[Rfam]
T-box leader: a 219-nucleotide sequence from Apilactobacillus kunkeei. It is annotated as a cis-regulatory leader. The match comes from Rfam's covariance-model search (104 bits). Rfam describes the family as follows. Uncharged tRNA acts as the effector for transcription antitermination of genes in the T-box leader family. T-boxes are found upstream of many aminoacyl-tRNA synthetase genes and some amino acid biosynthetic genes usually in Gram-positive bacteria. The anticodon of a specific tRNA base pairs to a specifier sequence within the T-box motif, and the NCCA acceptor tail of the tRNA base pairs to a conserved bulge in the T-box antiterminator hairpin. The source organism's lineage runs through Bacteria, Bacillota, Bacilli, Lactobacillales and Apilactobacillus.
RNA sequence: UUAAAUGUGUUGAAGAAAAAUUAGUAGGCGACAAACAAUACAGAAAGACUGCAUUUGAUGAGAGUAGUCACAAGUCAGCUGAAUUCAUUUUCUGAACUGAUAUUGGGAGUUACAAUUAACGAAAAAUAAUCCGGUAUUCCACCGUUAUGGAUUUUGAGUGUAUGAAUUGCGAACCGCAAUUUAUAAACUAGGGUGGUACCGCGAAGCUUCGUCCCUUUU
Numbered sequence: 001u002u003a004a005a006u007g008u009g010u011u012g013a014a015g016a017a018a019a020a021u022u023a024g025u026a027g028g029c030g031a032c033a034a035a036c037a038a039u040a041c042a043g044a045a046a047g048a049c050u051g052c053a054u055u056u057g058a059u060g061a062g063a064g065u066a067g068u069c070a071c072a073a074g075u076c077a078g079c080u081g082a083a084u085u086c087a088u089u090u091u092c093u094g095a096a097c098u099g100a101u102a103u104u105g106g107g108a109g110u111u112a113c114a115a116u117u118a119a120c121g122a123a124a125a126a127u128a129a130u131c132c133g134g135u136a137u138u139c140c141a142c143c144g145u146u147a148u149g150g151a152u153u154u155u156g157a158g159u160g161u162a163u164g165a166a167u168u169g170c171g172a173a174c175c176g177c178a179a180u181u182u183a184u185a186a187a188c189u190a191g192g193g194u195g196g197u198a199c200c201g202c203g204a205a206g207c208u209u210c211g212u213c214c215c216u217u218u219u
Base pairs, nucleotide, nucleotide: 007097008096015092016091017090018089027080028079029078030076031075032074047069048068049067050066051065052064100130101129102127103126104125132144133143134142161185162184163183164182165181166180167179168178169177170176190216191215192214193213201212202211203210204209